[Rfam]
RNA sequence: CUCUCUCUUCAAGCCAGAUACCGGGGGUUCACGGGCCACCGGUCAGCGCCAAGAGAAAAAGGAGCUAUAGCCCUUCUCUUUGGAGAAAAUAUUUAUAGGUAUGGGCGGCCAGUAGGUGAUGAUUCGCCAACCGCCGCCCAUGCCG
Numbered sequence: 001c002u003c004u005c006u007c008u009u010c011a012a013g014c015c016a017g018a019u020a021c022c023g024g025g026g027g028u029u030c031a032c033g034g035g036c037c038a039c040c041g042g043u044c045a046g047c048g049c050c051a052a053g054a055g056a057a058a059a060a061g062g063a064g065c066u067a068u069a070g071c072c073c074u075u076c077u078c079u080u081u082g083g084a085g086a087a088a089a090u091a092u093u094u095a096u097a098g099g100u101a102u103g104g105g106c107g108g109c110c111a112g113u114a115g116g117u118g119a120u121g122a123u124u125c126g127c128c129a130a131c132c133g134c135c136g137c138c139c140a141u142g143c144c145g
Stems, first nucleotide, its partner, number of pairs: 004056006013049002020043005026037003076085003098144012115128005
The family of this 145-nucleotide sequence is "RT-14 RNA". It is one of the family's seed sequences.